RNA sequence: GCCGCUGCCACUACGGGGCGGCGCCGGCCAAAAGCCGCACAAUCUUGUACCCAUGUUGCUUCAAGGAGGAUGUGGCUAUGAGAA
Numbered sequence: 001g002c003c004g005c006u007g008c009c010a011c012u013a014c015g016g017g018g019c020g021g022c023g024c025c026g027g028c029c030a031a032a033a034g035c036c037g038c039a040c041a042a043u044c045u046u047g048u049a050c051c052c053a054u055g056u057u058g059c060u061u062c063a064a065g066g067a068g069g070a071u072g073u074g075g076c077u078a079u080g081a082g083a084a
Base pairs, nucleotide, nucleotide: 001022002021003020004019005018006017008016009015025037026036027035028034044082045081046080047079048078049077051075052074053073054072055071056070057069059068060067061066
Dot-bracket structure: ((((((.((.....))))))))..((((.....))))......((((((.(((((((.(((....)))))))))).))))))..
Shown here is an 84-nucleotide RNA sequence from Falsochrobactrum shanghaiense, a member of the family "Repression of heat shock gene expression (ROSE) element". It is annotated as an RNA thermoregulator. A reference for the family is Nocker et al. (2001), "A mRNA-based thermosensor controls expression of rhizobial heat shock genes", Nucleic Acids Res. The family has 13 seed sequences and 381 matches in Rfam 15.1. Rfam describes the family as follows. This family represents a 5' UTR cis-regulatory element found in heat shock mRNAs and is known as the ROSE (repression of heat shock gene expression) element. The ROSE element is a negative regulator of heat shock gene expression. The secondary structure is thought to be regulated by temperature. This regulation blocks access to the ribosome binding site under normal conditions. During heat shock however, the structure changes freeing the ribosome binding site and allowing expression to occur. A search with the family's covariance model found it, with a score of 57 bits.